The record is a 76-nucleotide RNA from Eptesicus fuscus, which matches "mir-9229 microRNA precursor family" in Rfam. Rfam links the family to the GO terms miRNA-mediated post-transcriptional gene silencing and RISC complex.
Nucleotides: 076
Stems, first nucleotide, its partner, number of pairs: 001075005007069001010066003014062006021056003029053008038043001
Number, partner (000 for none) and nucleotide at each position: 001075g002074a003073g004072a005071c006000a007069c008000c009000c010066u011065u012064a013000u014062g015061g016060g017059g018058c019057a020000a021056g022055a023054c024000u025000u026000g027000u028000u029053u030052c031051a032050g033049u034048g035047g036046g037000u038043c039000u040000u041000u042000g043038g044000c045000g046036c047035u048034c049033a050032c051031u052030g053029a054023g055022u056021c057019u058018g059017c060016c061015c062014c063000c064012u065011g066010a067000a068000u069007g070000a071005g072004u073003c074002u075001c076000u